[Rfam]
RNA sequence: GUUUUAGGGAGGGUGAGUGGCCUGGAGCAUGGGUGUCGUGUGCGGAGCUGUGGUGUCGCGUGGGAGGCGCGUGCUGGCUGAGUGUGAGUGGACGCGUGAGUGUGUGAGUGUGCGCGCUUGGAGCGUGUUAGGCGAGUGCGUGCGCCCACCCCUGCGCCCCUCCUCCCGCUUACACUUUGAUCUUAUUUGAUCGGGUCGUGACCCUAGUCCCGCCGGUCCGACCCGAAAUGAAAAGCUCUCCUCCUGCGAAGCCCCCCACUCGAGGCGCCUGUGCAGAGAGGCCCCUUAGGCGGCGGCAACGCUGCGGUCCCCGAGGUCCUGGAGCUGGCCCUGCGGGGCCCGGCGCUCAGAAGUGAUGAAUUGAUCAGAUAGACGAGGCCGGGCUUGUCCCGGGCCAGUGAUUAUCGAGGCGAUUCUGAUCUGG
Number, nucleotide and partner (000 for none) at each position: 001g000002u000003u000004u000005u000006a000007g000008g000009g000010a000011g000012g000013g000014u000015g000016a000017g000018u000019g000020g000021c000022c000023u000024g000025g000026a000027g000028c000029a000030u000031g000032g000033g000034u000035g000036u000037c000038g000039u000040g000041u000042g000043c000044g000045g000046a000047g000048c000049u000050g000051u000052g158053g157054u156055g155056u154057c073058g072059c071060g070061u069062g068063g000064g000065a000066g000067g000068c062069g061070c060071g059072u058073g057074c000075u000076g000077g000078c000079u000080g000081a000082g000083u000084g000085u000086g000087a000088g000089u000090g105091g000092a103093c102094g101095c100096g000097u000098g000099a000100g095101u094102g093103u092104g000105u090106g000107a000108g145109u144110g143111u000112g000113c140114g139115c138116g137117c136118u000119u134120g133121g000122a000123g000124c000125g000126u000127g000128u000129u000130a000131g000132g000133c120134g119135a000136g117137u116138g115139c114140g113141u000142g000143c110144g109145c108146c000147c000148a000149c000150c000151c000152c000153u000154g056155c055156g054157c053158c052159c000160c000161u000162c000163c000164u000165c000166c000167c000168g000169c000170u000171u000172a000173c000174a000175c000176u000177u000178u000179g000180a000181u000182c000183u000184u000185a000186u234187u233188u232189g000190a000191u226192c225193g224194g223195g000196u221197c220198g219199u000200g218201a000202c000203c000204c216205u215206a000207g213208u212209c000210c000211c000212g208213c207214c000215g205216g204217u000218c200219c198220g197221a196222c000223c194224c193225g192226a191227a000228a000229u000230g000231a000232a188233a187234a186235g000236c000237u000238c000239u000240c000241c000242u000243c000244c000245u000246g000247c000248g000249a000250a000251g000252c000253c000254c000255c316256c000257c000258a000259c315260u314261c313262g312263a000264g310265g309266c000267g308268c307269c306270u000271g000272u000273g305274c304275a000276g302277a000278g300279a000280g000281g297282c296283c295284c293285c292286u000287u000288a000289g000290g000291c000292g285293g284294c000295g283296g282297c281298a000299a000300c278301g000302c276303u000304g274305c273306g269307g268308u267309c265310c264311c000312c262313g261314a260315g259316g255317u000318c000319c000320u000321g000322g000323a000324g344325c343326u342327g341328g340329c338330c337331c336332u000333g000334c000335g000336g331337g330338g329339c000340c328341c327342g326343g325344c324345g000346c000347u000348c423349a422350g421351a420352a000353g000354u000355g000356a000357u000358g416359a415360a414361u413362u412363g411364a000365u000366c000367a000368g000369a000370u000371a000372g000373a000374c000375g000376a000377g396378g395379c394380c393381g000382g391383g390384c000385u000386u000387g000388u000389c000390c383391c382392g000393g380394g379395c378396c377397a000398g000399u000400g000401a000402u000403u000404a000405u000406c000407g000408a000409g000410g000411c363412g362413a361414u360415u359416c358417u000418g000419a000420u351421c350422u349423g348424g000

Overview: Rfam assigns this 424-nucleotide RNA from Macaca mulatta to the family "Small Cajal body-specific RNA 2". By type it is a small Cajal body RNA. A reference for the family is Tycowski et al. (2004), "Guide RNAs with 5' caps and novel box C/D snoRNA-like domains for modification of snRNAs in metazoa", Curr Biol. Lineage of the source: Eukaryota > Teleostomi > Sarcopterygii > Mammalia > Macaca.